[Rfam]
RNA sequence: AAAAAGGGCUUGUGCCAUGUGUGGCACAUUGCGGUUUUCUACUUAGAGAACUGCGAUGCGGAAUCGAUAUCAAAAGAUUUCGAAAGCAUAAUUUUUGAUACUGGGGCUGCUUGUGGUCGUUUUCCCGGGCGCCCUC
Numbered sequence: 001a002a003a004a005a006g007g008g009c010u011u012g013u014g015c016c017a018u019g020u021g022u023g024g025c026a027c028a029u030u031g032c033g034g035u036u037u038u039c040u041a042c043u044u045a046g047a048g049a050a051c052u053g054c055g056a057u058g059c060g061g062a063a064u065c066g067a068u069a070u071c072a073a074a075a076g077a078u079u080u081c082g083a084a085a086g087c088a089u090a091a092u093u094u095u096u097g098a099u100a101c102u103g104g105g106g107c108u109g110c111u112u113g114u115g116g117u118c119g120u121u122u123u124c125c126c127g128g129g130c131g132c133c134c135u136c
Base pairs, nucleotide, nucleotide: 008087009086010085011084013026014025015024016023017022027058028057029056030055031054032053033052034051035050036049037048038047059082060081061080062079063078064077065076104134105133106132107131109130110129111128112127113126115125116124
This 136-nucleotide RNA sequence from Hymenochirus boettgeri belongs to the Rfam family "U11 spliceosomal RNA". It is annotated as a spliceosomal small nuclear RNA. Rfam links the family to the GO terms mRNA 5'-splice site recognition, pre-mRNA 5'-splice site binding and U11 snRNP. The family has 72 seed sequences and 2,595 matches in Rfam 15.1.